[Rfam]
A member of the RNA family "Lysine riboswitch aptamer" from Mediterraneibacter torques, 169 nucleotides long. For this family Rfam cites "Riboswitches Control Fundamental Biochemical Pathways in Bacillus subtilis and Other Bacteria" (Mandal et al., Cell, 2003). Pairs were carried over by alignment from the consensus structure, which is taken from published work. The match comes from Rfam's covariance-model search (86 bits).
RNA sequence: ACGUUUGAUAGAGGCGCGGUGAUAUGAGUACCCGCUGACGAGAGUCUUGGGAAGACUGUCAGUGAGAGAAAGGAGAAGCCGCCGAAGGAAUGAUAUUCCCAGAUAUGAUUCCUGGGCCGGAUGUAGAAGAUACGCCGGACUGUCACAGGUGUGGAGAGCUAUCGAUGAC
Number, nucleotide and partner (000 for none) at each position: 001a000002c000003g000004u000005u000006u164007g163008a162009u161010a160011g159012a000013g000014g000015c000016g082017c081018g080019g079020u077021g000022a000023u074024a000025u000026g000027a000028g000029u000030a000031c000032c066033c064034g063035c062036u061037g060038a059039c000040g000041a000042g000043a000044g000045u000046c000047u000048u000049g000050g000051g000052a000053a000054g000055a000056c000057u000058g000059u038060c037061a036062g035063u034064g033065a000066g032067a000068g000069a000070a000071a000072g000073g000074a023075g000076a000077a020078g000079c019080c018081g017082c016083c000084g000085a000086a113087g112088g111089a110090a109091u108092g000093a106094u105095a104096u103097u102098c000099c000100c000101a000102g097103a096104u095105a094106u093107g000108a091109u090110u089111c088112c087113u086114g141115g140116g000117c138118c137119g136120g135121a000122u134123g133124u132125a131126g000127a000128a000129g000130a000131u125132a124133c123134g122135c120136c119137g118138g117139a000140c115141u114142g000143u154144c153145a152146c151147a000148g000149g000150u000151g146152u145153g144154g143155a000156g000157a000158g000159c011160u010161a009162u008163c007164g006165a000166u000167g000168a000169c000